[Rfam]
RNA sequence: AAAAGGCGAUGAUGCGGAAGGUUGCUGACACACCCGGCCCCUUUGCCAUGGCGGGUGUAAGGAAAUUUUCGCGGAGAAUGUCUAUUUAAAAAAUGGGCGA
Numbered sequence: 001a002a003a004a005g006g007c008g009a010u011g012a013u014g015c016g017g018a019a020g021g022u023u024g025c026u027g028a029c030a031c032a033c034c035c036g037g038c039c040c041c042u043u044u045g046c047c048a049u050g051g052c053g054g055g056u057g058u059a060a061g062g063a064a065a066u067u068u069u070c071g072c073g074g075a076g077a078a079u080g081u082c083u084a085u086u087u088a089a090a091a092a093a094u095g096g097g098c099g100a
Stems, first nucleotide, its partner, number of pairs: 014072003018069004025061002028058004081100002086097002
Dot-bracket structure: .............(((.((((...((.((((.......................)))).))....)))))))........((...((........)).))